[Rfam]
Nucleotides: 116
Base pairs, nucleotide, nucleotide: 007103008102009101010100011067012066013065014064017035018034019033020032021031042060043059044058045057046056072097073096074095075094078091079090080089081088
Number, partner (000 for none) and nucleotide at each position: 001000a002000u003000g004000a005000a006000a007103g008102a009101c010100u011067a012066g013065g014064g015000g016000u017035g018034c019033c020032c021031g022000g023000a024000g025000g026000a027000a028000g029000g030000c031021c032020g033019g034018g035017c036000u037000g038000a039000g040000a041000a042060g043059a044058g045057g046056a047000a048000c049000c050000u051000u052000a053000u054000u055000a056046u057045u058044u059043u060042u061000c062000u063000a064014c065013c066012c067011u068000u069000g070000a071000a072097c073096c074095u075094g076000a077000u078091c079090u080089g081088g082000a083000u084000g085000a086000u087000a088081c089080c090079a091078g092000c093000g094075u095074a096073g097072g098000g099000a100010a101009g102008u103007c104000g105000a106000u107000u108000g109000u110000a111000g112000u113000g114000u115000u116000u

About this RNA:
TPP riboswitch aptamer (THI element): a 116-nucleotide RNA from Exobacillus caeni. The organism belongs to Exobacillus, within Bacteria. A search with the family's covariance model found it, with a score of 72 bits. Its family is annotated with thiamine pyrophosphate binding in the Gene Ontology.